[Rfam]
RNA sequence: GACCCCUGACAAUGGGCAAAAAGACACGUUGUCGGUCGUGCUAUUCUUUUAUCAGUCAGGGGCAGACACAAUGGCAGUCCUUUGUUAAUCCUAUUUUGAUGCCUGGCUUGGUGGCCAAAACUCUCUUAUGUCUAGGACUCAUAA
Numbered sequence: 001g002a003c004c005c006c007u008g009a010c011a012a013u014g015g016g017c018a019a020a021a022a023g024a025c026a027c028g029u030u031g032u033c034g035g036u037c038g039u040g041c042u043a044u045u046c047u048u049u050u051a052u053c054a055g056u057c058a059g060g061g062g063c064a065g066a067c068a069c070a071a072u073g074g075c076a077g078u079c080c081u082u083u084g085u086u087a088a089u090c091c092u093a094u095u096u097u098g099a100u101g102c103c104u105g106g107c108u109u110g111g112u113g114g115c116c117a118a119a120a121c122u123c124u125c126u127u128a129u130g131u132c133u134a135g136g137a138c139u140c141a142u143a144a
Base pairs, nucleotide, nucleotide: 003062004061005060006059007058008057013054014053015052019048020047023042025040026039027038028037084138085137086136098132099131100130104128105127106126110123111122